[Rfam]
The family of this 132-nucleotide RNA sequence is "Small nucleolar RNA SNORA46". Rfam's curators write: ACA46 is a member of the H/ACA class of snoRNA that guide the sites of modification of uridines to pseudouridines. Rfam 15.1 lists 582 matches to the family in 490 species. Its family is annotated with RNA processing and nucleolus in the Gene Ontology. The sequence is in the family's curated seed alignment.
RNA sequence: CAGAAGUUGGGUAAGCCAUGAAUGGGAAAUUUCCUCAUUCUUGGUUACACUAUAGUUCGAAAAGAAUUCCUGGCUUCUUGUUGCACAGCUGACUCAUGCCAUUUUGCUGCUUCAUGGAGUUAAGGAACAUGA
Numbered sequence: 001c002a003g004a005a006g007u008u009g010g011g012u013a014a015g016c017c018a019u020g021a022a023u024g025g026g027a028a029a030u031u032u033c034c035u036c037a038u039u040c041u042u043g044g045u046u047a048c049a050c051u052a053u054a055g056u057u058c059g060a061a062a063a064g065a066a067u068u069c070c071u072g073g074c075u076u077c078u079u080g081u082u083g084c085a086c087a088g089c090u091g092a093c094u095c096a097u098g099c100c101a102u103u104u105u106g107c108u109g110c111u112u113c114a115u116g117g118a119g120u121u122a123a124g125g126a127a128c129a130u131g132a
Base pairs, nucleotide, nucleotide: 003057004056008052009051014046015045016044017043020040021039022038023037024036025035026034067127068126069125070124071123072121073120074119075118076117077116079114080113083110086109087108088107089106091104092103